RNA: Small nucleolar RNA Z107/R87
Organism: Ensete ventricosum
RNA sequence: GGUUGCUGUGACGACUCUAGAAAAUUCAAUCUCAACAUACCGAUCGCAGGUCUCGCUUUCUUGAGGAAUUUGUAUGUUGACUACCCGGCUGAAUUGAACAACU
Numbered sequence: 001g002g003u004u005g006c007u008g009u010g011a012c013g014a015c016u017c018u019a020g021a022a023a024a025u026u027c028a029a030u031c032u033c034a035a036c037a038u039a040c041c042g043a044u045c046g047c048a049g050g051u052c053u054c055g056c057u058u059u060c061u062u063g064a065g066g067a068a069u070u071u072g073u074a075u076g077u078u079g080a081c082u083a084c085c086c087g088g089c090u091g092a093a094u095u096g097a098a099c100a101a102c103u
Base pairs, nucleotide, nucleotide: 001103002102003101004100005099